[Rfam]
RNA: mir-199 microRNA precursor family
Organism: Oryzias latipes
RNA sequence: ACCCCGCCUGCCCAGUGUUCAGACUACCUGUUCCUCCAGCUAUAACUGAACAGUAGUCUGCACAUUGGUUAGGCUAGACU
Numbered sequence: 001a002c003c004c005c006g007c008c009u010g011c012c013c014a015g016u017g018u019u020c021a022g023a024c025u026a027c028c029u030g031u032u033c034c035u036c037c038a039g040c041u042a043u044a045a046c047u048g049a050a051c052a053g054u055a056g057u058c059u060g061c062a063c064a065u066u067g068g069u070u071a072g073g074c075u076a077g078a079c080u
Stems, first nucleotide, its partner, number of pairs: 012068007020060007028053004033048001